[Rfam]
RNA sequence: AUACUUACCUGGCAGGGGAGACAGCAGGAUCAGGCAGCUGGUUUUCCCAAGGCAGGGUUCAUCCCCCUACACUCCAGGUGUCCUGACCCCUACAUUUUCCCAAAAUGCAGGAAAUUUGACUGCAUAAUUUGUAGUAACAGAGAACUCCUCUAGCAGGGGCCUUGG
Numbered sequence: 001a002u003a004c005u006u007a008c009c010u011g012g013c014a015g016g017g018g019a020g021a022c023a024g025c026a027g028g029a030u031c032a033g034g035c036a037g038c039u040g041g042u043u044u045u046c047c048c049a050a051g052g053c054a055g056g057g058u059u060c061a062u063c064c065c066c067c068u069a070c071a072c073u074c075c076a077g078g079u080g081u082c083c084u085g086a087c088c089c090c091u092a093c094a095u096u097u098u099c100c101c102a103a104a105a106u107g108c109a110g111g112a113a114a115u116u117u118g119a120c121u122g123c124a125u126a127a128u129u130u131g132u133a134g135u136a137a138c139a140g141a142g143a144a145c146u147c148c149u150c151u152a153g154c155a156g157g158g159g160c161c162u163u164g165g
Base pairs, nucleotide, nucleotide: 012123013122014121015120016048017047018046019045020044021043023042025040026039027038049091051089052088056084057083060080061079062078064077093118094117096114097113098112100110140163141162142161145159147157148156149155
A member of the RNA family "U1 spliceosomal RNA" from Dasyornis broadbenti, 165 nucleotides long. The family's RNA type in Rfam is spliceosomal small nuclear RNA. The base pairs follow the family's consensus structure, which is taken from published work. It scores 76 bits against the family's covariance model. Taxonomically the source falls in Dasyornis (Eukaryota, Sarcopterygii, Neognathae, Passeriformes).